[Rfam]
RNA sequence: CUCUUAUUGGAUAAUAACUGUCAUGUAUCAUGUUUUGAUUGGUCAAUGAAAACAAUAAUUAAUGCAUUUCAUCUUCCAUAGAGUUGACAUCCAAUCAGAACAUGGCAAGUGAUAGUCAUCAUCC
Number, nucleotide and partner (000 for none) at each position: 001c000002u000003c000004u000005u000006a000007u000008u000009g000010g000011a000012u000013a000014a000015u000016a000017a000018c000019u000020g113021u112022c111023a110024u000025g000026u107027a000028u000029c104030a103031u102032g000033u100034u099035u098036u097037g000038a095039u094040u093041g092042g091043u000044c000045a000046a000047u000048g000049a000050a000051a000052a000053c000054a000055a000056u000057a000058a000059u000060u000061a000062a000063u000064g000065c000066a000067u000068u000069u000070c000071a000072u000073c000074u000075u000076c000077c000078a000079u000080a000081g000082a000083g000084u000085u000086g000087a000088c000089a000090u000091c042092c041093a040094a039095u038096c000097a036098g035099a034100a033101c000102a031103u030104g029105g000106c000107a026108a000109g000110u023111g022112a021113u020114a000115g000116u000117c000118a000119u000120c000121a000122u000123c000124c000
RNA: MIR1520 microRNA precursor family